[Rfam]
RNA sequence: CUAUACACUGAGUGGGCAGGUUAUUAUGAUCUCUGAACGCAUAAUAAUCUGUCCACUCAGUGUGUGU
Numbered sequence: 001c002u003a004u005a006c007a008c009u010g011a012g013u014g015g016g017c018a019g020g021u022u023a024u025u026a027u028g029a030u031c032u033c034u035g036a037a038c039g040c041a042u043a044a045u046a047a048u049c050u051g052u053c054c055a056c057u058c059a060g061u062g063u064g065u066g067u
Base pairs, nucleotide, nucleotide: 004064005063006062007061008060009059010058011057012056013055014054015053016052017051019049020048021047022046023045024044025043026042027041028040

Rfam assigns this 67-nucleotide sequence from Cnephaeus nilssonii to the family "mir-9256 microRNA precursor family". The organism belongs to Cnephaeus, within Eukaryota. Rfam links the family to the GO terms RISC complex and miRNA-mediated post-transcriptional gene silencing.